This 182-nucleotide RNA from Pelusios castaneus belongs to the Rfam family "Small Cajal body specific RNA 16". The family's consensus secondary structure was predicted with RNAfold. Lineage of the source: Eukaryota > Chordata > Archelosauria > Pelomedusidae > Pelusios. Rfam links the family to the GO terms RNA processing and nucleolus. The literature on the family includes a 2002 paper in EMBO J by Darzacq et al., "Cajal body-specific small nuclear RNAs: a novel class of 2'-O-methylation and pseudouridylation guide RNAs". scaRNAs are a specific class of small nuclear RNAs which localise to the Cajal bodies and guide the modification of RNA polymerase II transcribed spliceosomal RNAs U1, U2, U4, U5 and U12. ACA47 belongs to the H/ACA box class of guide RNAs as it has the predicted hairpin-hinge-hairpin-tail structure, the conserved H/ACA-box motifs and is found associated with GAR1. ACA47 is predicted to guide the pseudouridylation of residue U5 of the U1 spliceosomal snRNA. The match comes from Rfam's covariance-model search (130 bits).
RNA sequence: AGGGUUUGGGGAAGGGCGGCUGUGUGGUUGGACCCUUGUUGACACAGCCUUGUACCAGCCAGCCUGACCUCGUGCCCUAGAAUAAUCGUACGCAGACUCUUCUGUAGAGUUUGCCCUGUGCAGUAACAGGUGUGAGCAUUCUUGCAGCAUUUUGAUGGUCAUGUAUGAUACUGCAUACAAAA
Dot-bracket structure: .((((..(((....(((.((((.(((((((..............)))))....))))))..)))...)))...))))...........(.((((((....))))).).).......(((((((((.((....(((.((((...(......)..)))).)))....)).))))))))).....